[Rfam]
RNA sequence: UAGGACGUCGGCAAGCGGUAAGCCACCGGGUUUUGAUCCCGGCAUUCGCAGGUUCGAAUCCUGCCGUCCUAG
Numbered sequence: 001u002a003g004g005a006c007g008u009c010g011g012c013a014a015g016c017g018g019u020a021a022g023c024c025a026c027c028g029g030g031u032u033u034u035g036a037u038c039c040c041g042g043c044a045u046u047c048g049c050a051g052g053u054u055c056g057a058a059u060c061c062u063g064c065c066g067u068c069c070u071a072g
Stems, first nucleotide, its partner, number of pairs: 001071007010024003026042005048064005
RNA: tRNA
Organism: Spirochaeta sp. LUC14_002_19_P3